[Rfam]
RNA sequence: UGAAUUCUUCGGGGUCGGGUGUAAGUCCCAACCGGCGGUAUAGUCCGCGACCCGUUAUCAUAGUAUAACGGCUGAACUGGUGUAAUUCCGGUACCGACAGUAAAGUCUGGAUGAGAGAAGAAAUUG
Numbered sequence: 001u002g003a004a005u006u007c008u009u010c011g012g013g014g015u016c017g018g019g020u021g022u023a024a025g026u027c028c029c030a031a032c033c034g035g036c037g038g039u040a041u042a043g044u045c046c047g048c049g050a051c052c053c054g055u056u057a058u059c060a061u062a063g064u065a066u067a068a069c070g071g072c073u074g075a076a077c078u079g080g081u082g083u084a085a086u087u088c089c090g091g092u093a094c095c096g097a098c099a100g101u102a103a104a105g106u107c108u109g110g111a112u113g114a115g116a117g118a119a120g121a122a123a124u125u126g
Base pairs, nucleotide, nucleotide: 003124005122006121007120008119009118010117017029018028019027031106032105033096034095035048036047037046038045043094044093052071053070076092077091078090079089080088098109099108100107